[Rfam]
RNA sequence: GGCUUGUUUGAAUGCAGUGGAUGUAUAUAAAGGCUUAUUCUUGCUAUAAACCUUUU
Number, nucleotide and partner (000 for none) at each position: 001g000002g018003c017004u000005u016006g015007u014008u000009u000010g000011a000012a000013u000014g007015c006016a005017g003018u002019g000020g000021a000022u000023g000024u000025a000026u000027a000028u000029a000030a054031a053032g052033g051034c000035u049036u048037a047038u046039u000040c000041u000042u000043g000044c000045u000046a038047u037048a036049a035050a000051c033052c032053u031054u030055u000056u000
RNA: Cyanobacteria heterocyst sRNA
Organism: Bambusicola thoracicus